[Rfam]
RNA sequence: GUCUUGCUGCGGCCCUCGUCGAAGGCAACAUUUCCUCGCGACCUUAAUUCACUCGAAGGGAUCUGUCCCUGUCUGGGCUCGAGGGCCCGGGCACACGGAGCCCACCUGGCUACCCAGGUCGAGAGGAUUUAAACGCCCUUCACGGUUCUCGCGGCGCCGCC
Numbered sequence: 001g002u003c004u005u006g007c008u009g010c011g012g013c014c015c016u017c018g019u020c021g022a023a024g025g026c027a028a029c030a031u032u033u034c035c036u037c038g039c040g041a042c043c044u045u046a047a048u049u050c051a052c053u054c055g056a057a058g059g060g061a062u063c064u065g066u067c068c069c070u071g072u073c074u075g076g077g078c079u080c081g082a083g084g085g086c087c088c089g090g091g092c093a094c095a096c097g098g099a100g101c102c103c104a105c106c107u108g109g110c111u112a113c114c115c116a117g118g119u120c121g122a123g124a125g126g127a128u129u130u131a132a133a134c135g136c137c138c139u140u141c142a143c144g145g146u147u148c149u150c151g152c153g154g155c156g157c158c159g160c161c
Base pairs, nucleotide, nucleotide: 002159005156006155007154008153009152010151011150012148015145017144018143019142033127034126035125036124039121040120041119042118043117058103059102060101062099063098064097065096066095071092072091073090074089075088076087077086
The record is a 161-nucleotide RNA from Brevundimonas basaltis, which matches "6S / SsrS RNA" in Rfam. A reference for the family is Barrick et al. (2005), "6S RNA is a widespread regulator of eubacterial RNA polymerase that resembles an open promoter", RNA. Rfam's curators write: E. coli 6S RNA was the first non coding RNA to be sequenced, but its function was unknown until recently. It consists of 184 nucleotides that fold into an extended hairpin structure with a large single-stranded internal bulge. It scores 53 bits against the family's covariance model.